[Rfam]
RNA sequence: CACGUCAGCGCGCUUUGCUGACGUAGAAACAAAUCGUGCUUCAGAGGACGCGAUUUGUUGCCAUGUCAGCAAAGCGCGCUGAUGUGG
Numbered sequence: 001c002a003c004g005u006c007a008g009c010g011c012g013c014u015u016u017g018c019u020g021a022c023g024u025a026g027a028a029a030c031a032a033a034u035c036g037u038g039c040u041u042c043a044g045a046g047g048a049c050g051c052g053a054u055u056u057g058u059u060g061c062c063a064u065g066u067c068a069g070c071a072a073a074g075c076g077c078g079c080u081g082a083u084g085u086g087g
Base pairs, nucleotide, nucleotide: 001086002085003084004083005082006081007080008079009078010077011076012075013074014073015072016071017070018069019068020067021066023064024063026061028059029058030057031056032055033054034053035052036051037050038049040047041046